[Rfam]
A member of the RNA family "dinG RNA", 96 nucleotides long. Rfam classes the family as a small RNA.
RNA sequence: AAUGAUACUUCCCUGAACCUGACUGGAAAAGGGCCCGCGACGUAGGGAUUGCGGGGGAACGCUCGUCACGUUUGAAAAAGAAUGUGGGGAGGUUUC
Numbered sequence: 001a002a003u004g005a006u007a008c009u010u011c012c013c014u015g016a017a018c019c020u021g022a023c024u025g026g027a028a029a030a031g032g033g034c035c036c037g038c039g040a041c042g043u044a045g046g047g048a049u050u051g052c053g054g055g056g057g058a059a060c061g062c063u064c065g066u067c068a069c070g071u072u073u074g075a076a077a078a079a080g081a082a083u084g085u086g087g088g089g090a091g092g093u094u095u096c
Base pairs, nucleotide, nucleotide: 011033012032013031014030034055035054036053037052038051039050057096058095059094061093062092063090064089067086068085069084070083071082
Dot-bracket structure: ..........((((...............))))((((((..........)))))).(((.((((..(((((..........)))))..)).)))))